Shown here is a 57-nucleotide sequence from Methylorubrum extorquens, a member of the family "nhaA-I RNA". The organism belongs to Methylorubrum extorquens, within Bacteria. Rfam classes the family as a riboswitch. The base pairs follow the family's consensus structure, which is taken from published work. Rfam describes the family as follows. Acidobacteria, Alphaproteobacteria, Betaproteobacteria and Gammaproteobacteria, Verrucomicrobia, cand. division NC10.
RNA sequence: GGGUGCACGGUCCGAAGGUCGGAGCGGCAGGUUUAUGUGCUGGUCGGGCCGCCAGCA
Numbered sequence: 001g002g003g004u005g006c007a008c009g010g011u012c013c014g015a016a017g018g019u020c021g022g023a024g025c026g027g028c029a030g031g032u033u034u035a036u037g038u039g040c041u042g043g044u045c046g047g048g049c050c051g052c053c054a055g056c057a
Stems, first nucleotide, its partner, number of pairs: 005028002008026002011023002038057007